[Rfam]
Shown here is a 107-nucleotide sequence from Actinopolyspora mzabensis, a member of the family "TPP riboswitch aptamer (THI element)". Vitamin B(1) in its active form thiamin pyrophosphate (TPP) is an essential coenzyme that is synthesised by coupling of pyrimidine and thiazole moieties in bacteria. The match comes from Rfam's covariance-model search (62 bits).
RNA sequence: GUGGGUACCCGCGGGAGUCCGGCCGAACGGACUGAGAGGGGGCUGAAGCCCCGACCGCCGAACCUGAUCCGGAUCAUGCCGGCGCAGGGAGUGAGCAUUGACCAAGG
Numbered sequence: 001g002u003g004g005g006u007a008c009c010c011g012c013g014g015g016a017g018u019c020c021g022g023c024c025g026a027a028c029g030g031a032c033u034g035a036g037a038g039g040g041g042g043c044u045g046a047a048g049c050c051c052c053g054a055c056c057g058c059c060g061a062a063c064c065u066g067a068u069c070c071g072g073a074u075c076a077u078g079c080c081g082g083c084g085c086a087g088g089g090a091g092u093g094a095g096c097a098u099u100g101a102c103c104a105a106g107g
Base pairs, nucleotide, nucleotide: 006095008093010091011058012057013056014055017032018031019030020029021028039052040051041050042049043048063088064087065086066085069082070081071080072079
Dot-bracket structure: .....(.(.(((((..(((((......)))))......(((((....)))))..))))....((((..((((......))))..))))..).).)............